[Rfam]
RNA sequence: CUCCAUGGCGACCGUGGCUUUAGAUUGUUACUCUAUAGCAACAGCACCACGGUAACAGUCUACAGCCAUGGUCGUUAGGGGCAG
Numbered sequence: 001c002u003c004c005a006u007g008g009c010g011a012c013c014g015u016g017g018c019u020u021u022a023g024a025u026u027g028u029u030a031c032u033c034u035a036u037a038g039c040a041a042c043a044g045c046a047c048c049a050c051g052g053u054a055a056c057a058g059u060c061u062a063c064a065g066c067c068a069u070g071g072u073c074g075u076u077a078g079g080g081g082c083a084g
Stems, first nucleotide, its partner, number of pairs: 012071002015068004023060010